[Rfam]
RNA sequence: CCUGGUCCAUGAUGAUCCUUCCUUUGGAGACUGCUGGAUGAGUCCUGCGGAUAUGGGGCUGAGGCCAGGC
Numbered sequence: 001c002c003u004g005g006u007c008c009a010u011g012a013u014g015a016u017c018c019u020u021c022c023u024u025u026g027g028a029g030a031c032u033g034c035u036g037g038a039u040g041a042g043u044c045c046u047g048c049g050g051a052u053a054u055g056g057g058g059c060u061g062a063g064g065c066c067a068g069g070c
Stems, first nucleotide, its partner, number of pairs: 001069005
Small nucleolar RNA SNORD99: a 70-nucleotide RNA sequence from Probosciger aterrimus.
It is annotated as a C/D-box small nucleolar RNA.
Gene Ontology terms of the family: RNA processing and nucleolus.
Rfam 15.1 lists 673 matches to the family in 613 species.
The source organism's lineage runs through Eukaryota, Metazoa, Gnathostomata, Cacatuidae and Probosciger.
The base pairs follow the family's consensus structure, which was predicted with RNAalifold.
On this family, see Huttenhofer et al., EMBO J 2001: "RNomics: an experimental approach that identifies 201 candidates for novel, small, non-messenger RNAs in mouse".